[Rfam]
RNA sequence: AGUCGCAAGUUCAAGGCCACAGAAAAAGUGCUCAUGAUGCAGCCCUGUCAGAUUCUAACAAAUCUGCUAAUUCUUCU
Numbered sequence: 001a002g003u004c005g006c007a008a009g010u011u012c013a014a015g016g017c018c019a020c021a022g023a024a025a026a027a028g029u030g031c032u033c034a035u036g037a038u039g040c041a042g043c044c045c046u047g048u049c050a051g052a053u054u055c056u057a058a059c060a061a062a063u064c065u066g067c068u069a070a071u072u073c074u075u076c077u
Base pairs, nucleotide, nucleotide: 015044016043017042021077022076023075024074026072027071028040029039030038049066050065051064052063053062054061

Shown here is a 77-nucleotide RNA sequence from Alligator sinensis, a member of the family "Mammalian CPEB3 ribozyme". Rfam describes the family as follows. The mammalian CPEB3 ribozyme is a self cleaving RNA located in the second intron of the CPEB3 gene which belongs to a family of genes regulating messenger RNA polyadenylation. For this family Rfam cites "A genomewide search for ribozymes reveals an HDV-like sequence in the human CPEB3 gene" (Salehi-Ashtiani et al., Science, 2006). The source organism's lineage runs through Eukaryota, Gnathostomata, Amniota, Sauria and Alligator.